The record is a 353-nucleotide sequence from Phascolarctobacterium succinatutens, which matches "Bacterial RNase P class A" in Rfam.

[Rfam]
Nucleotides: 353
Base pairs, nucleotide, nucleotide: 001349002348003347004346005345006344007343010340011339012310013309014308015307016306017305018304020040021039023037024036025035026034027033028032045337046336047335049334050333051332052331053330054213055212056211057210061245062244063243064242066209067208068207069206070205071085072084073083074082075081086100087098088097089096090095101204102203106202107201108198109197110196124145125144126141127140128139129138130137131136153171154170155169156168157167158166173193174191175190176189177188178187179186180185217267218266219265220263227257228256229255230254231253232252238248239247240246275292276291277290278289279288280287281286
Number, partner (000 for none) and nucleotide at each position: 001349u002348g003347a004346g005345u006344a007343c008000g009000a010340a011339a012310g013309a014308u015307g016306a017305u018304c019000g020040c021039g022000g023037c024036u025035g026034g027033c028032u029000u030000u031000a032028a033027g034026u035025c036024a037023g038000a039021u040020g041000a042000g043000g044000a045337a046336a047335g048000u049334c050333c051332g052331a053330g054213c055212u056211c057210c058000a059000c060000a061245g062244g063243g064242c065000a066209g067208g068207a069206u070205g071085c072084c073083g074082g075081a076000u077000a078000a079000c080000g081075u082074c083073c084072g085071g086100c087098g088097a089096g090095g091000g092000u093000g094000a095090c096089c097088u098087c099000a100086g101204g102203g103000a104000u105000a106202g107201u108198g109197c110196c111000a112000c113000a114000g115000a116000a117000a118000u119000g120000u121000g122000u123000a124145c125144c126141g127140c128139c129138u130137g131136c132000a133000u134000u135000u136131g137130c138129a139128g140127g141126u142000a143000a144125g145124g146000g147000u148000g149000g150000a151000a152000c153171g154170g155169u156168g157167c158166g159000g160000u161000a162000a163000g164000a165000g166158c167157g168156c169155a170154c171153c172000a173193g174191c175190g176189g177188u178187c179186u180185g181000g182000u183000a184000a185180c186179a187178g188177g189176c190175c191174g192000g193173c194000u195000a196110g197109g198108u199000a200000a201107a202106c203102c204101c205070c206069a207068u208067c209066c210057g211056g212055a213054g214000c215000a216000a217267g218266a219265c220263c221000a222000a223000a224000u225000a226000g227257g228256g229255g230254a231253g232252g233000g234000a235000u236000g237000a238248a239247g240246c241000u242064g243063c244062c245061c246240g247239c248238u249000g250000a251000g252232c253231c254230u255229u256228c257227c258000g259000g260000g261000u262000u263220g264000u265219g266218u267217c268000g269000c270000u271000u272000g273000a274000g275292c276291u277290u278289g279288c280287a281286g282000g283000u284000a285000a286281c287280u288279g289278u290277a291276a292275g293000a294000c295000u296000a297000g298000a299000u300000a301000a302000a303000u304018g305017a306016u307015c308014a309013u310012c311000a312000c313000c314000g315000c316000u317000u318000c319000g320000c321000g322000g323000a324000a325000c326000a327000g328000a329000a330053c331052u332051c333050g334049g335047c336046u337045u338000a339011u340010u341000g342000a343007g344006u345005a346004c347003u348002c349001a350000u351000a352000c353000c
Background: By type it is a ribozyme.